[Rfam]
RNA sequence: GGUAGUAGCAAAUAUUCAAAUGAGAACUUUGAAGACUGAAGUGGAGAAAGGUUCCGUGUGAACAGCAUUUGGACACGGGUUAGUCGAUCCUGAGAGCUCUCUUCAACGACAUUGAACAGGCCGACUUUGCUGCUCGGCAACGCUCGAAAGGGAAUCAGGUUCAUAUUCCUGAACCAGGACGUGGAUAUUGUAUGGCAACAUAAGAGAAGUCGGAGACGUCGGCGCGAGCCCUGGGAAGAGUUUUCUUUUCUUUUUAACAUUGAUUCUCCCGCUGGGCCCUGGAAUCUGAUUAUCAGGAGAGAGGGCCACGGGGAUGGGAAAGCACCCAACCUCUUGGGUGUCCGGUGCGCUCGCGACGACCCUUGAAAAUCCGACGGACAGACUUAUUCGCACCCCUGGUCGUACUCAUAACCGCAUCAGGUCUCCUAGGUGAGCAGCCUCUAGUCGA
Numbered sequence: 001g002g003u004a005g006u007a008g009c010a011a012a013u014a015u016u017c018a019a020a021u022g023a024g025a026a027c028u029u030u031g032a033a034g035a036c037u038g039a040a041g042u043g044g045a046g047a048a049a050g051g052u053u054c055c056g057u058g059u060g061a062a063c064a065g066c067a068u069u070u071g072g073a074c075a076c077g078g079g080u081u082a083g084u085c086g087a088u089c090c091u092g093a094g095a096g097c098u099c100u101c102u103u104c105a106a107c108g109a110c111a112u113u114g115a116a117c118a119g120g121c122c123g124a125c126u127u128u129g130c131u132g133c134u135c136g137g138c139a140a141c142g143c144u145c146g147a148a149a150g151g152g153a154a155u156c157a158g159g160u161u162c163a164u165a166u167u168c169c170u171g172a173a174c175c176a177g178g179a180c181g182u183g184g185a186u187a188u189u190g191u192a193u194g195g196c197a198a199c200a201u202a203a204g205a206g207a208a209g210u211c212g213g214a215g216a217c218g219u220c221g222g223c224g225c226g227a228g229c230c231c232u233g234g235g236a237a238g239a240g241u242u243u244u245c246u247u248u249u250c251u252u253u254u255u256a257a258c259a260u261u262g263a264u265u266c267u268c269c270c271g272c273u274g275g276g277c278c279c280u281g282g283a284a285u286c287u288g289a290u291u292a293u294c295a296g297g298a299g300a301g302a303g304g305g306c307c308a309c310g311g312g313g314a315u316g317g318g319a320a321a322g323c324a325c326c327c328a329a330c331c332u333c334u335u336g337g338g339u340g341u342c343c344g345g346u347g348c349g350c351u352c353g354c355g356a357c358g359a360c361c362c363u364u365g366a367a368a369a370u371c372c373g374a375c376g377g378a379c380a381g382a383c384u385u386a387u388u389c390g391c392a393c394c395c396c397u398g399g400u401c402g403u404a405c406u407c408a409u410a411a412c413c414g415c416a417u418c419a420g421g422u423c424u425c426c427u428a429g430g431u432g433a434g435c436a437g438c439c440u441c442u443a444g445u446c447g448a
Base pairs, nucleotide, nucleotide: 015033016032017031018030019029020028034446035445036444037443043426044425045424046423049406050405054078055077056076057075058074059073063071064070085402086401087400089151090150094145095144096112100109101108120138121137122136123135124134155172156171157170158169159168175398176397177396178395181393182392183391185388191202192201193200194199209375210374211373212372213371214370218360219359220358221357223355224354225353226352227351228350229349231345232344233343234254235253236252237251238250239249258316259315260314261313276306277305278304279303280302285297286296287295288294323340324339325338326337327336328335329334412421413420428440429439430438431437

Annotation
Eukaryotic large subunit ribosomal RNA: a 448-nucleotide part of an RNA from Plasmodiophora brassicae. The organism belongs to Plasmodiophora, within Eukaryota. Gene Ontology terms of the family: structural constituent of ribosome and ribosome.